[Rfam]
RNA sequence: UCCAUCGCGAGGUGGAAUCUGAAGGAAGCGCUAGGCAAAACUCUGGUCCGAGGGAUACGAAUCACAUAUAAGGCUAGCAUAGUUUGGAUAAGUCUGCUAAACAAGAUGAAGUCCAAAACGGUUCGAAGACUAUGAGAGUAAAUGUGGCGGAUAGAUGGAGUGAAAGUGGUUAUGC
Numbered sequence: 001u002c003c004a005u006c007g008c009g010a011g012g013u014g015g016a017a018u019c020u021g022a023a024g025g026a027a028g029c030g031c032u033a034g035g036c037a038a039a040a041c042u043c044u045g046g047u048c049c050g051a052g053g054g055a056u057a058c059g060a061a062u063c064a065c066a067u068a069u070a071a072g073g074c075u076a077g078c079a080u081a082g083u084u085u086g087g088a089u090a091a092g093u094c095u096g097c098u099a100a101a102c103a104a105g106a107u108g109a110a111g112u113c114c115a116a117a118a119c120g121g122u123u124c125g126a127a128g129a130c131u132a133u134g135a136g137a138g139u140a141a142a143u144g145u146g147g148c149g150g151a152u153a154g155a156u157g158g159a160g161u162g163a164a165a166g167u168g169g170u171u172a173u174g175c
Stems, first nucleotide, its partner, number of pairs: 001016006030175002035170002040161006046152005062147006073139003078134006086114004092107004
Dot-bracket structure: ((((((....)))))).............((...((...(((((((((((...........((((((.....(((..((((((..((((..((((........))))...))))..............))))))..)))..)))))))))))...)))))).......))...))
The record is a 175-nucleotide RNA from Haloplasma contractile, which matches "Group II catalytic intron D1-D4-3" in Rfam. For this family Rfam cites "The ins and outs of group II introns" (Bonen and Vogel, Trends Genet, 2001). It scores 144 bits against the family's covariance model. Group II introns are found in rRNA, tRNA and mRNA of organelles in fungi, plants and protists, and also in mRNA in bacteria. Pairs were carried over by alignment from the consensus structure.